[Rfam]
Lysine riboswitch aptamer: a 174-nucleotide RNA from Clostridium paridis. Rfam links the family to the GO term lysine biosynthetic process. The base pairs follow the family's consensus structure, which is taken from published work. Taxonomically the source falls in Clostridium (Bacteria, Bacillati, Clostridia, Clostridiaceae). The family has 47 seed sequences and 3,224 matches in Rfam 15.1.
RNA sequence: UUUUGAGAUAGAGGCGCGAUGUUUAUGAGUACCAUUACGGAGGUAAGCACAUAGAUGUUUUGGAAAAGGAACCAUCGCCGAAGUGUAUAGCUAAUGCUUUAAGGCUAUAUUGCUGGUUUUGUAUAAAAUAUAUGCAAGACUGUCACAAGUUUUUUGUGGAGUGCUAUACAUGGA
Numbered sequence: 001u002u003u004u005g006a007g008a009u010a011g012a013g014g015c016g017c018g019a020u021g022u023u024u025a026u027g028a029g030u031a032c033c034a035u036u037a038c039g040g041a042g043g044u045a046a047g048c049a050c051a052u053a054g055a056u057g058u059u060u061u062g063g064a065a066a067a068g069g070a071a072c073c074a075u076c077g078c079c080g081a082a083g084u085g086u087a088u089a090g091c092u093a094a095u096g097c098u099u100u101a102a103g104g105c106u107a108u109a110u111u112g113c114u115g116g117u118u119u120u121g122u123a124u125a126a127a128a129u130a131u132a133u134g135c136a137a138g139a140c141u142g143u144c145a146c147a148a149g150u151u152u153u154u155u156g157u158g159g160a161g162u163g164c165u166a167u168a169c170a171u172g173g174a
Stems, first nucleotide, its partner, number of pairs: 008167004016078006023071002032063003037058003082114004086109007115141011143159007